[Rfam]
RNA sequence: GCGUGAUGCAAAUGGGCUUUGCGGAACCCAUCCCGCAAAAGUGAGCGGCACUCCCAAAGAAGCACGGCUGUUUCAUCGUGUACCUCUCGUAGAACCGGCAAGCGCCCACGCAGUGAAGCGGGUAAAAAAACGCAGCUUGCAACUGUCGGGUCAUGCAGUGAAGCAGGUAUCAAACUCACGCCGACAGUGCGGAAGGUUGCAAGGGUGUUCUGGUGGACAAAUUUGGGGGAAUACCGUCUGCGGAAACAGCCCGCAGGCGG
Numbered sequence: 001g002c003g004u005g006a007u008g009c010a011a012a013u014g015g016g017c018u019u020u021g022c023g024g025a026a027c028c029c030a031u032c033c034c035g036c037a038a039a040a041g042u043g044a045g046c047g048g049c050a051c052u053c054c055c056a057a058a059g060a061a062g063c064a065c066g067g068c069u070g071u072u073u074c075a076u077c078g079u080g081u082a083c084c085u086c087u088c089g090u091a092g093a094a095c096c097g098g099c100a101a102g103c104g105c106c107c108a109c110g111c112a113g114u115g116a117a118g119c120g121g122g123u124a125a126a127a128a129a130a131c132g133c134a135g136c137u138u139g140c141a142a143c144u145g146u147c148g149g150g151u152c153a154u155g156c157a158g159u160g161a162a163g164c165a166g167g168u169a170u171c172a173a174a175c176u177c178a179c180g181c182c183g184a185c186a187g188u189g190c191g192g193a194a195g196g197u198u199g200c201a202a203g204g205g206u207g208u209u210c211u212g213g214u215g216g217a218c219a220a221a222u223u224u225g226g227g228g229g230a231a232u233a234c235c236g237u238c239u240g241c242g243g244a245a246a247c248a249g250c251c252c253g254c255a256g257g258c259g260g
Base pairs, nucleotide, nucleotide: 002047003046004045020037021036022035023034024033027227028226029225030224049207050206051205052204053203062081063080064079065078066077067076068249069248070247071246072245073244074243082197083196084195085194087192088191089190090189091188234260235259236258237257238256239255240254241253242252
A member of the RNA family "FuFi-1 RNA", 260 nucleotides long. Rfam classes the family as a small RNA. Rfam's curators put it in the seed alignment.